[Rfam]
RNA sequence: GGCAAGUAUUUUACGAUUAAGAAGCAACUGCUUCUUGUACAAAUUGUGUAUGAAUCC
Numbered sequence: 001g002g003c004a005a006g007u008a009u010u011u012u013a014c015g016a017u018u019a020a021g022a023a024g025c026a027a028c029u030g031c032u033u034c035u036u037g038u039a040c041a042a043a044u045u046g047u048g049u050a051u052g053a054a055u056c057c
Stems, first nucleotide, its partner, number of pairs: 018037008